[Rfam]
Rfam assigns this 168-nucleotide RNA from Klebsiella sp. RIT-PI-d to the family "RtT RNA". The family's consensus secondary structure is taken from published work. From the family's description: This family represents a bacterial cis-regulatory element known as RtT RNA. The exact function of RtT is unknown although it is thought that it may be involved in changing the cellular response in relation to amino acid starvation.
RNA sequence: UAGCUCAGUUGGUAGAGCAGUUGACUUUUAAUCAAUUGGUCGCAGGUUCGAAUCCUGCACGACCCACCAUUGUUCUGGUGGAAUGCAGUAAUAAACGUGAAGGAUAACGUUGCUUCAGCAACGGCCCGUAGGGCGAGGCAAAGCCGAGUCAUCCUGCACGACCCACCA
Numbered sequence: 001u002a003g004c005u006c007a008g009u010u011g012g013u014a015g016a017g018c019a020g021u022u023g024a025c026u027u028u029u030a031a032u033c034a035a036u037u038g039g040u041c042g043c044a045g046g047u048u049c050g051a052a053u054c055c056u057g058c059a060c061g062a063c064c065c066a067c068c069a070u071u072g073u074u075c076u077g078g079u080g081g082a083a084u085g086c087a088g089u090a091a092u093a094a095a096c097g098u099g100a101a102g103g104a105u106a107a108c109g110u111u112g113c114u115u116c117a118g119c120a121a122c123g124g125c126c127c128g129u130a131g132g133g134c135g136a137g138g139c140a141a142a143g144c145c146g147a148g149u150c151a152u153c154c155u156g157c158a159c160g161a162c163c164c165a166c167c168a
Stems, first nucleotide, its partner, number of pairs: 015159001017157004022151001037135002040133002047130001049128002055102001108123006
A search with the family's covariance model found it, with a score of 59 bits.
NCBI's taxonomy places the organism under Bacteria, Gammaproteobacteria, Enterobacterales, Enterobacteriaceae, Klebsiella.
Rfam 15.1 lists 651 matches to the family in 204 species.